[Rfam]
RNA sequence: UGACGCGCUCCGGGGUCGGUGCAAUUCCGAACCGGCGGUGACAGUCCGCGACCCGACCGCCGCCAGCGGCCGGUGGACCCGGUGGAACUCCGGGACCGACGGUGAGAGUCCGGAUGGUAGGCGGCGCGU
Numbered sequence: 001u002g003a004c005g006c007g008c009u010c011c012g013g014g015g016u017c018g019g020u021g022c023a024a025u026u027c028c029g030a031a032c033c034g035g036c037g038g039u040g041a042c043a044g045u046c047c048g049c050g051a052c053c054c055g056a057c058c059g060c061c062g063c064c065a066g067c068g069g070c071c072g073g074u075g076g077a078c079c080c081g082g083u084g085g086a087a088c089u090c091c092g093g094g095a096c097c098g099a100c101g102g103u104g105a106g107a108g109u110c111c112g113g114a115u116g117g118u119a120g121g122c123g124g125c126g127c128g129u
Base pairs, nucleotide, nucleotide: 004126005125006124009121010120017029018028019027031109032108033098034097035049036048037047038046044096045095053073054072078094079093080092081091082090100112101111102110